[Rfam]
RNA: serC leader
RNA sequence: GGGCGGGCCACUCCUCCCCAACGAGGAGCUUUCAUCUGGAAGGAUGACCACC
Numbered sequence: 001g002g003g004c005g006g007g008c009c010a011c012u013c014c015u016c017c018c019c020a021a022c023g024a025g026g027a028g029c030u031u032u033c034a035u036c037u038g039g040a041a042g043g044a045u046g047a048c049c050a051c052c
Stems, first nucleotide, its partner, number of pairs: 011028006032047006